[Rfam]
RNA: RNA-OUT
Organism: Caenorhabditis nigoni
RNA sequence: CUGUGCAUUUUGUCGUCAAAUAUAGUGUUUUGGUCAGAACACCGAAAUUGACGACAAAAUGCACAGAAA
Number, nucleotide and partner (000 for none) at each position: 001c000002u000003g064004u063005g062006c061007a060008u059009u058010u057011u056012g055013u054014c053015g052016u051017c000018a049019a048020a000021u000022a000023u000024a000025g000026u000027g000028u000029u000030u000031u000032g000033g000034u045035c044036a000037g042038a000039a000040c000041a000042c037043c000044g035045a034046a000047a000048u019049u018050g000051a016052c015053g014054a013055c012056a011057a010058a009059a008060u007061g006062c005063a004064c003065a000066g000067a000068a000069a000